Shown here is a 69-nucleotide RNA from Candidula unifasciata, a member of the family "mir-12 microRNA precursor family". The match comes from Rfam's covariance-model search (55 bits). The family's consensus secondary structure was predicted with RNAalifold. The organism belongs to Candidula, within Eukaryota. Its family is annotated with RISC complex and miRNA-mediated post-transcriptional gene silencing in the Gene Ontology.
RNA sequence: AGGGUUUGAGUAUUACAUCAGGUACUGAGGUUGGUGCAUGUUCAGUACCUACUGUGAUAUUCUGACUUU
Numbered sequence: 001a002g003g004g005u006u007u008g009a010g011u012a013u014u015a016c017a018u019c020a021g022g023u024a025c026u027g028a029g030g031u032u033g034g035u036g037c038a039u040g041u042u043c044a045g046u047a048c049c050u051a052c053u054g055u056g057a058u059a060u061u062c063u064g065a066c067u068u069u
Stems, first nucleotide, its partner, number of pairs: 001069006009061004015055003018051001021049009